[Rfam]
About this RNA: Bacterial small signal recognition particle RNA: an 84-nucleotide RNA from Nitratidesulfovibrio vulgaris. About the family: The signal recognition particle (SRP) is a universally conserved ribonucleoprotein involved in the co-translational targeting of proteins to membranes. Gene Ontology terms of the family: signal recognition particle, plasma membrane targeting and SRP-dependent cotranslational protein targeting to membrane, signal sequence recognition. Rfam classes the family as a non-coding RNA gene. The base pairs follow the family's consensus structure, which is taken from published work.
RNA sequence: GAGCCGGGCGGCGGUAACGCUGCCAACCCCGCCAGGUCCGAAAGGAAGCAACGGUAACAGUUGUUGCCGGGUGUCCGGCUCCCU
Dot-bracket structure: (((((((((..(((((..((((......(((.....(((....))).....)))...))))...))))).)..))))))))...
Numbered sequence: 001g002a003g004c005c006g007g008g009c010g011g012c013g014g015u016a017a018c019g020c021u022g023c024c025a026a027c028c029c030c031g032c033c034a035g036g037u038c039c040g041a042a043a044g045g046a047a048g049c050a051a052c053g054g055u056a057a058c059a060g061u062u063g064u065u066g067c068c069g070g071g072u073g074u075c076c077g078g079c080u081c082c083c084u
Stems, first nucleotide, its partner, number of pairs: 001081008009071001012069005019061004029054003037046003